[Rfam]
RNA sequence: UUAACUCAAAAUUGUAUGCAGUUGGAACAGCGCCCCUAGCGUCAAAUGUAGGCAAACGUUCCAACUCCAUACGAAUUUGAGAUA
Numbered sequence: 001u002u003a004a005c006u007c008a009a010a011a012u013u014g015u016a017u018g019c020a021g022u023u024g025g026a027a028c029a030g031c032g033c034c035c036c037u038a039g040c041g042u043c044a045a046a047u048g049u050a051g052g053c054a055a056a057c058g059u060u061c062c063a064a065c066u067c068c069a070u071a072c073g074a075a076u077u078u079g080a081g082a083u084a
Stems, first nucleotide, its partner, number of pairs: 008078003012074005018068001020066009034052002039047001
Notes:
Shown here is an 84-nucleotide sequence from Bombyx mori, a member of the family "mir-2807 microRNA precursor family". The match comes from Rfam's covariance-model search (64 bits). The family's consensus secondary structure was predicted with RNAalifold.